RNA sequence: AUCGAGAGACGGGGGCGUUCGCCGCAAGGCGAGCUGAGAAGCACCCUUCGAACCUGAACCAGAUCAUGCUGGCGGAGGGAGUCGCUCGGGGCAGCCU
Numbered sequence: 001a002u003c004g005a006g007a008g009a010c011g012g013g014g015g016c017g018u019u020c021g022c023c024g025c026a027a028g029g030c031g032a033g034c035u036g037a038g039a040a041g042c043a044c045c046c047u048u049c050g051a052a053c054c055u056g057a058a059c060c061a062g063a064u065c066a067u068g069c070u071g072g073c074g075g076a077g078g079g080a081g082u083c084g085c086u087c088g089g090g091g092c093a094g095c096c097u
Stems, first nucleotide, its partner, number of pairs: 006085001008083003011047004016041001017034005053078003059072004
RNA: TPP riboswitch aptamer (THI element)
Organism: Allobosea sp. Root483D1